[Rfam]
Record summary
The family of this 52-nucleotide sequence is "L31-Gammaproteobacteria ribosomal protein leader". Clan: Ribosomal Protein L31 Leader clan. The base pairs follow the family's consensus structure, which is taken from published work. The literature on the family includes a 2020 paper in BMC Microbiol by Eckert and Weinberg, "Discovery of 20 novel ribosomal leader candidates in bacteria and archaea". It is annotated as a cis-regulatory leader.
RNA sequence: CGUAUGGUGGCCAGCUUCGGGUUGGUUAGCGAUACGGCCUUAAUAUUGAGGU
Numbered sequence: 001c002g003u004a005u006g007g008u009g010g011c012c013a014g015c016u017u018c019g020g021g022u023u024g025g026u027u028a029g030c031g032a033u034a035c036g037g038c039c040u041u042a043a044u045a046u047u048g049a050g051g052u
Stems, first nucleotide, its partner, number of pairs: 001036005007030002011025005